[Rfam]
Rfam assigns this 126-nucleotide RNA sequence from Streptococcus zalophi to the family "Ribosomal protein L20 leader". The family's consensus secondary structure was predicted with CMfinder. A search with the family's covariance model found it, with a score of 78 bits.
RNA sequence: UGGGAAAAGCAGAAGUGAGAACUUCUCGCCUUGCAAUUAACGUUGUCUGGCUCUACAUAACACAUUUCAAUGAUGAAAUAUAAUGUAGUGCGGGCUUGUUAAUCAGGCCCGCUUUCGUUUUUCUCU
Numbered sequence: 001u002g003g004g005a006a007a008a009g010c011a012g013a014a015g016u017g018a019g020a021a022c023u024u025c026u027c028g029c030c031u032u033g034c035a036a037u038u039a040a041c042g043u044u045g046u047c048u049g050g051c052u053c054u055a056c057a058u059a060a061c062a063c064a065u066u067u068c069a070a071u072g073a074u075g076a077a078a079u080a081u082a083a084u085g086u087a088g089u090g091c092g093g094g095c096u097u098g099u100u101a102a103u104c105a106g107g108c109c110c111g112c113u114u115u116c117g118u119u120u121u122u123c124u125c126u
Base pairs, nucleotide, nucleotide: 011026012025013024014023015022016021028051029050030049033046034045035044036043037042090112091111092110093109094108095107096106097105098104